[Rfam]
RNA sequence: CACCAAAGCUACUUCAUUCAAACAAAUCUUAAACGGUUCAUCAACCAACGCUCCAGCCAACAUGUCUCCCUGCUCCUGCAACUGCUGCUCCGGCAACUGCAACUCCUGCUCCUGCUCUAGCUGCAGCGUAUGUCUUCCAUAUUUUU
Number, nucleotide and partner (000 for none) at each position: 001c000002a000003c000004c000005a000006a000007a000008g000009c000010u000011a000012c000013u000014u000015c000016a000017u000018u000019c000020a000021a000022a000023c000024a000025a000026a000027u000028c000029u000030u000031a000032a000033a000034c000035g000036g000037u000038u000039c000040a000041u000042c000043a000044a000045c000046c000047a000048a000049c000050g000051c000052u000053c000054c000055a000056g000057c000058c000059a000060a000061c000062a000063u000064g000065u000066c000067u000068c000069c000070c000071u095072g094073c093074u092075c000076c000077u000078g088079c087080a086081a000082c000083u000084g000085c000086u080087g079088c078089u000090c000091c000092g074093g073094c072095a071096a000097c000098u000099g124100c123101a122102a000103c000104u000105c000106c000107u000108g115109c114110u000111c000112c000113u000114g109115c108116u000117c000118u000119a000120g000121c000122u101123g100124c099125a000126g000127c000128g000129u000130a000131u000132g000133u000134c000135u000136u000137c000138c000139a000140u000141a000142u000143u000144u000145u000146u000

A member of the RNA family "A. fumigatus sRNA Afu_254" from Penicillium argentinense, 146 nucleotides long. On this family, see Jochl et al., Nucleic Acids Res 2008: "Small ncRNA transcriptome analysis from Aspergillus fumigatus suggests a novel mechanism for regulation of protein synthesis". NCBI's taxonomy places the organism under Eukaryota, Ascomycota, Eurotiomycetidae, Eurotiales, Penicillium. Rfam 15.1 lists 185 matches to the family in 142 species.